[Rfam]
Description:
Shown here is a 69-nucleotide RNA from Patiria pectinifera, a member of the family "tRNA". Its family is annotated with triplet codon-amino acid adaptor activity in the Gene Ontology. About the family: Transfer RNA (tRNA) molecules are approximately 80 nucleotides in length.
RNA sequence: GUUUCAUGAGUAUAGCAGUACAUUCGGCUUCCAACCGAAAGGUUUUUGUAAACAACCAAAAAUGAAAUA
Numbered sequence: 001g002u003u004u005c006a007u008g009a010g011u012a013u014a015g016c017a018g019u020a021c022a023u024u025c026g027g028c029u030u031c032c033a034a035c036c037g038a039a040a041g042g043u044u045u046u047u048g049u050a051a052a053c054a055a056c057c058a059a060a061a062a063u064g065a066a067a068u069a
Stems, first nucleotide, its partner, number of pairs: 001068007010021004023039005045061003